Nuclear RNase P: a 466-nucleotide sequence from Athelia sp. TMB.
The base pairs follow the family's consensus structure, which is taken from published work.
The match comes from Rfam's covariance-model search (70 bits).
Rfam 15.1 lists 3,848 matches to the family in 1,862 species.
RNA sequence: ACAGUCCCAAAGCCGCGAGGCUCACUACAUACAGGAUCGCGCCAGCGUCCUCUUUCGUGAGCGGGCUAAGGUCUGAGCAUGCCAGUCCCCCUCGAUCAACUCUCGCAGGGUCCGGCGUUAAUCGCGCUGAGCAGCACACCAGAAAUAUAGCACACAGCUUCAUUGAUCCUAAGAUUCUUUUCACCGAGGGGAGGACGAGACUGUGCGGCGUUGGGAUAUGCUGUGGGGACCGUGCACAUGCAUUGCUGGGGCUGCACAAUAACCUAUCACUGGAACCUGUGCCGUUGAGGCGUCUGGUCUAUGCACUUGGCUGGCGUCGCUGACGCAAGCGCGACGCCGCAGUCUGGCCCUUUGACCGGGUCCAGCAUGAGGGCUUCAUGCAUCCCGGUACAUCUGUUCUUCAGUUCACUUCGUGGCUCGUGGUCUCUUGGCCAGCGAAACUCAAUUCAGACUAUUCUGGUCCUGU
Numbered sequence: 001a002c003a004g005u006c007c008c009a010a011a012g013c014c015g016c017g018a019g020g021c022u023c024a025c026u027a028c029a030u031a032c033a034g035g036a037u038c039g040c041g042c043c044a045g046c047g048u049c050c051u052c053u054u055u056c057g058u059g060a061g062c063g064g065g066c067u068a069a070g071g072u073c074u075g076a077g078c079a080u081g082c083c084a085g086u087c088c089c090c091c092u093c094g095a096u097c098a099a100c101u102c103u104c105g106c107a108g109g110g111u112c113c114g115g116c117g118u119u120a121a122u123c124g125c126g127c128u129g130a131g132c133a134g135c136a137c138a139c140c141a142g143a144a145a146u147a148u149a150g151c152a153c154a155c156a157g158c159u160u161c162a163u164u165g166a167u168c169c170u171a172a173g174a175u176u177c178u179u180u181u182c183a184c185c186g187a188g189g190g191g192a193g194g195a196c197g198a199g200a201c202u203g204u205g206c207g208g209c210g211u212u213g214g215g216a217u218a219u220g221c222u223g224u225g226g227g228g229a230c231c232g233u234g235c236a237c238a239u240g241c242a243u244u245g246c247u248g249g250g251g252c253u254g255c256a257c258a259a260u261a262a263c264c265u266a267u268c269a270c271u272g273g274a275a276c277c278u279g280u281g282c283c284g285u286u287g288a289g290g291c292g293u294c295u296g297g298u299c300u301a302u303g304c305a306c307u308u309g310g311c312u313g314g315c316g317u318c319g320c321u322g323a324c325g326c327a328a329g330c331g332c333g334a335c336g337c338c339g340c341a342g343u344c345u346g347g348c349c350c351u352u353u354g355a356c357c358g359g360g361u362c363c364a365g366c367a368u369g370a371g372g373g374c375u376u377c378a379u380g381c382a383u384c385c386c387g388g389u390a391c392a393u394c395u396g397u398u399c400u401u402c403a404g405u406u407c408a409c410u411u412c413g414u415g416g417c418u419c420g421u422g423g424u425c426u427c428u429u430g431g432c433c434a435g436c437g438a439a440a441c442u443c444a445a446u447u448c449a450g451a452c453u454a455u456u457c458u459g460g461u462c463c464u465g466u
Base pairs, nucleotide, nucleotide: 001466002465003464004463007460008459009458012417013416014415015414016413017412018411020062021061022060023059024058034050035049036048037047038045073450074449075448076447077446090228091227099111100110101109102108113129114128115127116126117125118124131224132223133222134221135220136219151210418438419437420436421434422433423432424431